[Rfam]
RNA sequence: UCACGAAUGACCCUUCGUGUCCCUACCCAGACAUGCGUUAGAAGUAAUUCUUUCGUGUGAAGCUCUGGGGACAAUGCUAUUAGUUAGGGAAAAAAGUCAAGGUAAGCGAAAGCGAAGAUAUGUGUUUACGGUACUGAUUUAAUAG
Numbered sequence: 001u002c003a004c005g006a007a008u009g010a011c012c013c014u015u016c017g018u019g020u021c022c023c024u025a026c027c028c029a030g031a032c033a034u035g036c037g038u039u040a041g042a043a044g045u046a047a048u049u050c051u052u053u054c055g056u057g058u059g060a061a062g063c064u065c066u067g068g069g070g071a072c073a074a075u076g077c078u079a080u081u082a083g084u085u086a087g088g089g090a091a092a093a094a095a096g097u098c099a100a101g102g103u104a105a106g107c108g109a110a111a112g113c114g115a116a117g118a119u120a121u122g123u124g125u126u127u128a129c130g131g132u133a134c135u136g137a138u139u140u141a142a143u144a145g
Stems, first nucleotide, its partner, number of pairs: 002019006027068005032059006040051004082097001084095002098122002101119001106113002
About this RNA
A member of the RNA family "Group II catalytic intron D1-D4-7" from Drechslerella stenobrocha, 145 nucleotides long. Rfam's curators write: Group II introns are found in rRNA, tRNA and mRNA of organelles in fungi, plants and protists, and also in mRNA in bacteria. The literature on the family includes a 2001 paper in Trends Genet by Bonen and Vogel, "The ins and outs of group II introns".